RNA: c-di-GMP-I riboswitch aptamer
Organism: Paenibacillus agri
RNA sequence: CAUUUUUAAAGGCAAACUAUUCGAAAGGGUAGGACGCAAAGCAAUGGGCCUAAGAAUGCACAAGCUGCAUUUAUGGUUGCCAGGCUGCCAAU
Numbered sequence: 001c002a003u004u005u006u007u008a009a010a011g012g013c014a015a016a017c018u019a020u021u022c023g024a025a026a027g028g029g030u031a032g033g034a035c036g037c038a039a040a041g042c043a044a045u046g047g048g049c050c051u052a053a054g055a056a057u058g059c060a061c062a063a064g065c066u067g068c069a070u071u072u073a074u075g076g077u078u079g080c081c082a083g084g085c086u087g088c089c090a091a092u
Base pairs, nucleotide, nucleotide: 012037013036017032018031019030020029021028022027040086041085042084045082046081047080048077049076050075055071056070057069058068059067060066